Shown here is a 115-nucleotide RNA from Sporosarcina sp. Te-1, a member of the family "SAM riboswitch aptamer (S box leader)". The match comes from Rfam's covariance-model search (79 bits).

RNA sequence: CUCUUAUCAAGAGCGGCGGAGGGACUAGGCCCUGCGAUGCCCGGCAACCGGCGAGUGACGAACUUGCAAAGGUGCUACUUCCUACAGAACGUGCGAACGGUCUGAAAGAUAAGGG
Number, nucleotide and partner (000 for none) at each position: 001c115002u114003c113004u112005u111006a110007u109008c108009a000010a000011g000012a000013g042014c000015g041016g040017c039018g000019g000020a000021g032022g031023g030024a000025c000026u084027a083028g082029g081030c023031c022032c021033u000034g000035c000036g000037a000038u000039g017040c016041c015042c013043g076044g075045c074046a073047a000048c072049c071050g000051g067052c066053g065054a064055g063056u000057g000058a000059c000060g000061a000062a000063c055064u054065u053066g052067c051068a000069a000070a000071g049072g048073u046074g045075c044076u043077a000078c000079u000080u107081c029082c028083u027084a026085c104086a103087g102088a101089a000090c099091g000092u000093g000094c000095g000096a000097a000098c000099g090100g000101u088102c087103u086104g085105a000106a000107a080108g008109a007110u006111a005112a004113g003114g002115g001